[Rfam]
RNA sequence: CCUAGUCUUUACCUAUAGAGUAAGACUGGGCCACAAGCCAAUUAAUAGUGCCUUUAAAUUUUUAGAAGUCAUAAAAUUCAAUUACAACAAUUAGUAGUUAUGAUAUGAAUGUGAAAAUUGAAGUAGUGGUGAUUUACUUUUAAUUAAUUGGCUAAUGCCU
Numbered sequence: 001c002c003u004a005g006u007c008u009u010u011a012c013c014u015a016u017a018g019a020g021u022a023a024g025a026c027u028g029g030g031c032c033a034c035a036a037g038c039c040a041a042u043u044a045a046u047a048g049u050g051c052c053u054u055u056a057a058a059u060u061u062u063u064a065g066a067a068g069u070c071a072u073a074a075a076a077u078u079c080a081a082u083u084a085c086a087a088c089a090a091u092u093a094g095u096a097g098u099u100a101u102g103a104u105a106u107g108a109a110u111g112u113g114a115a116a117a118u119u120g121a122a123g124u125a126g127u128g129g130u131g132a133u134u135u136a137c138u139u140u141u142a143a144u145u146a147a148u149u150g151g152c153u154a155a156u157g158c159c160u
Stems, first nucleotide, its partner, number of pairs: 001030009011021002037152010048137003053132002081127005088120005097112002
Shown here is a 160-nucleotide RNA, a member of the family "RT-16 RNA". Rfam classes the family as a small RNA. It is one of the family's seed sequences.